[Rfam]
RNA sequence: AGAGGAGUUUCCUAGGGUUCCGCAGUACACUAUACUGGUCUGGUCCGAGAGGAAACGCACGAACGCUUCGUGUACACGGAGGGACAAAAACCCGGGAGGA
Numbered sequence: 001a002g003a004g005g006a007g008u009u010u011c012c013u014a015g016g017g018u019u020c021c022g023c024a025g026u027a028c029a030c031u032a033u034a035c036u037g038g039u040c041u042g043g044u045c046c047g048a049g050a051g052g053a054a055a056c057g058c059a060c061g062a063a064c065g066c067u068u069c070g071u072g073u074a075c076a077c078g079g080a081g082g083g084a085c086a087a088a089a090a091c092c093c094g095g096g097a098g099g100a
Stems, first nucleotide, its partner, number of pairs: 007056006015046002020043002022040001023037005057073006075095001077098001081093003

Guanidine-I riboswitch aptamer: a 100-nucleotide sequence from Oceanobacillus piezotolerans. The pairing is the family consensus, mapped onto this sequence. The match comes from Rfam's covariance-model search (88 bits). This family represents a conserved RNA structure found upstream of the ykkC and yxkD genes in Bacillus subtilis and related genes in other bacteria. The function of this family is unclear although it has been suggested that it may function to switch on efflux pumps and detoxification systems in response to harmful environmental molecules.